[Rfam]
RNA sequence: GCAGGGAAGAGGAAGAAAGAGAGGUCCUAAGAGCAGUAGGAGUGGGAACAUGAAGGAAUGCCUAUGCUCUGAUUUCUCCUCUAGCAUUGGAGGAGGAGGAUUGCAUCGAUGUGUUCCUGAUGCCUCCCAUUCCUAUGGUUCUUAGGUUCUCCUUCCUCUUCCUUUCGCUA
Numbered sequence: 001g002c003a004g005g006g007a008a009g010a011g012g013a014a015g016a017a018a019g020a021g022a023g024g025u026c027c028u029a030a031g032a033g034c035a036g037u038a039g040g041a042g043u044g045g046g047a048a049c050a051u052g053a054a055g056g057a058a059u060g061c062c063u064a065u066g067c068u069c070u071g072a073u074u075u076c077u078c079c080u081c082u083a084g085c086a087u088u089g090g091a092g093g094a095g096g097a098g099g100a101u102u103g104c105a106u107c108g109a110u111g112u113g114u115u116c117c118u119g120a121u122g123c124c125u126c127c128c129a130u131u132c133c134u135a136u137g138g139u140u141c142u143u144a145g146g147u148u149c150u151c152c153u154u155c156c157u158c159u160u161c162c163u164u165u166c167g168c169u170a
Stems, first nucleotide, its partner, number of pairs: 009161005015155003021151003026146009037135011049122003053118001055117007
Record summary: MIR2118 microRNA precursor family: a 170-nucleotide RNA sequence from Panicum virgatum. A search with the family's covariance model found it, with a score of 157 bits. Rfam links the family to the GO terms miRNA-mediated post-transcriptional gene silencing and RISC complex. The base pairs follow the family's consensus structure, which was predicted with RNAalifold.